Record summary
Transposase-2 RNA: a 69-nucleotide sequence. It is annotated as a small RNA. It is one of the family's seed sequences.
RNA sequence: GAAACGUGAACCAAGCCAGCAUGAUUAUGCUGUAAGACUUGGAGCGGACAAUCGCAAGACUGUCCUGUA
Numbered sequence: 001g002a003a004a005c006g007u008g009a010a011c012c013a014a015g016c017c018a019g020c021a022u023g024a025u026u027a028u029g030c031u032g033u034a035a036g037a038c039u040u041g042g043a044g045c046g047g048a049c050a051a052u053c054g055c056a057a058g059a060c061u062g063u064c065c066u067g068u069a
Stems, first nucleotide, its partner, number of pairs: 011042005018031005046065005052059002